[Rfam]
RNA sequence: UCUUUUCUUAGCCUCUCGUGAUGAUCCCGAUUCUGUGCUGAGUGGCUUCCUUGAUGAGCUUACAGUGAGCCCUCUAAGAAGUUGACUGAAGAGGCUGGCAGGUU
Dot-bracket structure: .......((((((((...........................................................................))))))))......

This 104-nucleotide RNA from Pogona vitticeps belongs to the Rfam family "Small nucleolar RNA SNORD125". The match comes from Rfam's covariance-model search (60 bits). Rfam classes the family as a C/D-box small nucleolar RNA.